This 79-nucleotide RNA sequence from Marinobacter algicola belongs to the Rfam family "Group II catalytic intron D1-D4-1".

RNA sequence: UGAACGCCGGGCAACCGGCGUUGACCGGCAAACAGGAAUCAGCAGAGGGCAUGGUAGGUUCACCCGUGAACCGAAGGCC
Numbered sequence: 001u002g003a004a005c006g007c008c009g010g011g012c013a014a015c016c017g018g019c020g021u022u023g024a025c026c027g028g029c030a031a032a033c034a035g036g037a038a039u040c041a042g043c044a045g046a047g048g049g050c051a052u053g054g055u056a057g058g059u060u061c062a063c064c065c066g067u068g069a070a071c072c073g074a075a076g077g078c079c
Base pairs, nucleotide, nucleotide: 001023002022004021005020006019007018008017009016010015039046040045048079049078050077057072058071059070060069061068062067

Pairs were carried over by alignment from the consensus structure.